A member of the RNA family "U2 spliceosomal RNA" from Fusarium odoratissimum, 200 nucleotides long.
The family's consensus secondary structure is taken from published work.
The organism belongs to Fusarium oxysporum species complex, within Eukaryota.
RNA sequence: CCUUCUUCUUUGCCGUAAGGCUCGGAUCAAAGUGUAGUAACUGUUCUUGUUGAGGCUAACCCCUCAACACGGGUCGUAUACUGGCUCGAUACUGCUCUAAUUUUUUGGAUUAUUGGUGAUGGCUCAACGGCGCUUGCGUGGUUGAAUCGUUUCCAGGGUGUCCUUGGUAUUACACUGUCUCCAAGCGAUGCGCACAUGUU
Number, nucleotide and partner (000 for none) at each position: 001c000002c000003u000004u000005c000006u000007u026008c025009u024010u000011u000012g021013c020014c019015g000016u000017a000018a000019g014020g013021c012022u000023c000024g009025g008026a007027u000028c000029a000030a000031a000032g000033u000034g000035u000036a000037g000038u000039a000040a000041c000042u000043g000044u000045u000046c000047u000048u069049g068050u067051u000052g065053a064054g063055g000056c000057u000058a000059a000060c000061c000062c000063c054064u053065c052066a000067a050068c049069a048070c000071g087072g086073g085074u084075c083076g082077u000078a000079u000080a000081c000082u076083g075084g074085c073086u072087c071088g000089a000090u000091a000092c000093u000094g000095c000096u000097c000098u000099a000100a000101u000102u000103u000104u000105u000106u000107g000108g000109a000110u000111u000112a000113u000114u000115g153116g152117u000118g150119a000120u000121g147122g000123c000124u000125c000126a000127a000128c000129g000130g139131c138132g137133c000134u000135u000136g000137c132138g131139u130140g000141g000142u000143u000144g000145a000146a000147u121148c000149g000150u118151u000152u116153c115154c000155a000156g193157g000158g191159u190160g189161u188162c000163c185164u184165u183166g182167g181168u000169a000170u000171u000172a000173c000174a000175c000176u000177g000178u000179c000180u000181c167182c166183a165184a164185g163186c000187g000188a161189u160190g159191c158192g000193c156194a000195c000196a000197u000198g000199u000200u000